Shown here is a 79-nucleotide RNA from Lentibacillus salicampi, a member of the family "skipping-rope RNA". Lineage of the source: Bacteria > Bacillota > Bacilli > Caryophanales > Lentibacillus. It scores 50 bits against the family's covariance model.

[Rfam]
Nucleotides: 079
Stems, first nucleotide, its partner, number of pairs: 001079008011028001013026003019064002030053001031047007058071005
Number, partner (000 for none) and nucleotide at each position: 001079g002078g003077u004076u005075a006074a007073u008072g009000a010000g011028g012000u013026g014025g015024g016000a017000a018000a019064g020063g021000u022000u023000c024015c025014c026013c027000u028011c029000g030053c031047g032046c033045u034044a035043c036042a037041c038000a039000u040000u041037g042036u043035g044034u045033a046032g047031u048000u049000a050000c051000c052000g053030g054000a055000g056000a057000u058071g059070c060069a061068g062067g063020u064019u065000g066000u067062c068061c069060u070059g071058u072008c073007a074006u075005u076004a077003a078002c079001u